U1 spliceosomal RNA: a 162-nucleotide RNA from Cnephaeus nilssonii. From the family's description: U1 is a small nuclear RNA (snRNA) component of the spliceosome (involved in pre-mRNA splicing). It scores 131 bits against the family's covariance model.

[Rfam]
RNA sequence: AUACUUACUUGGCAGGGGAGAUGCCAUGAUCAGGAAGGUGGUUUUUCCAGAUGGAGGCUUAUCCCUUGCACUUGGGAUGUGCUGACCCCUGUGAUUUCCCCAAAACUGGAAUACUCGACUGCAUAAUUUGUGUUAUGGGGACUGUGUUCACACUCUCCCCUG
Numbered sequence: 001a002u003a004c005u006u007a008c009u010u011g012g013c014a015g016g017g018g019a020g021a022u023g024c025c026a027u028g029a030u031c032a033g034g035a036a037g038g039u040g041g042u043u044u045u046u047c048c049a050g051a052u053g054g055a056g057g058c059u060u061a062u063c064c065c066u067u068g069c070a071c072u073u074g075g076g077a078u079g080u081g082c083u084g085a086c087c088c089c090u091g092u093g094a095u096u097u098c099c100c101c102a103a104a105a106c107u108g109g110a111a112u113a114c115u116c117g118a119c120u121g122c123a124u125a126a127u128u129u130g131u132g133u134u135a136u137g138g139g140g141a142c143u144g145u146g147u148u149c150a151c152a153c154u155c156u157c158c159c160c161u162g
Stems, first nucleotide, its partner, number of pairs: 012122004016048006023042005049090002054086001056083003060079005092117003095113001096111002099109002137160005144153003